skipping-rope RNA: a 101-nucleotide RNA from Agrobacterium tumefaciens. The sequence is in the family's curated seed alignment. Lineage of the source: Bacteria > Pseudomonadati > Pseudomonadota > Hyphomicrobiales > Agrobacterium tumefaciens.
RNA sequence: AUCAACCGAAGGCGGAAAGUUACCGCCACCUAGCAACCAGGAGGGCACCACACUUCUAGUGCUUAACGGAGAUGCAGGAGUUUAGCGACCUGCCGGUUGUA
Numbered sequence: 001a002u003c004a005a006c007c008g009a010a011g012g013c014g015g016a017a018a019g020u021u022a023c024c025g026c027c028a029c030c031u032a033g034c035a036a037c038c039a040g041g042a043g044g045g046c047a048c049c050a051c052a053c054u055u056c057u058a059g060u061g062c063u064u065a066a067c068g069g070a071g072a073u074g075c076a077g078g079a080g081u082u083u084a085g086c087g088a089c090c091u092g093c094c095g096g097u098u099g100u101a
Base pairs, nucleotide, nucleotide: 003099004098005097006096007095008094011027012026013025014024015023019086020085021084022083029069032063033062034061074093075092076091077090078089